Gammaprotebacteria rimP leader: a 133-nucleotide sequence from Vibrio cholerae. Rfam links the family to the GO term regulation of gene expression. The literature on the family includes a 2010 paper in Genome Biol by Naville and Gautheret, "Premature terminator analysis sheds light on a hidden world of bacterial transcriptional attenuation". The organism belongs to Vibrio cholerae, within Bacteria.

[Rfam]
RNA sequence: AGAGCAUUCUCAUUUAUCAGGGUCCAGCAAUAAAAAACCCCGACUUAAUCGGGGUUUUUUAUUAUCUAAAUUUCCUUUUUAAGGGUUUUAGGUAUUUGCUUGGUAUUUAAAUUGGGCUCUAAGCCCUUUUUUU
Numbered sequence: 001a002g003a004g005c006a007u008u009c010u011c012a013u014u015u016a017u018c019a020g021g022g023u024c025c026a027g028c029a030a031u032a033a034a035a036a037a038c039c040c041c042g043a044c045u046u047a048a049u050c051g052g053g054g055u056u057u058u059u060u061a062u063u064a065u066c067u068a069a070a071u072u073u074c075c076u077u078u079u080u081a082a083g084g085g086u087u088u089u090a091g092g093u094a095u096u097u098g099c100u101u102g103g104u105a106u107u108u109a110a111a112u113u114g115g116g117c118u119c120u121a122a123g124c125c126c127u128u129u130u131u132u133u
Stems, first nucleotide, its partner, number of pairs: 034058009114126004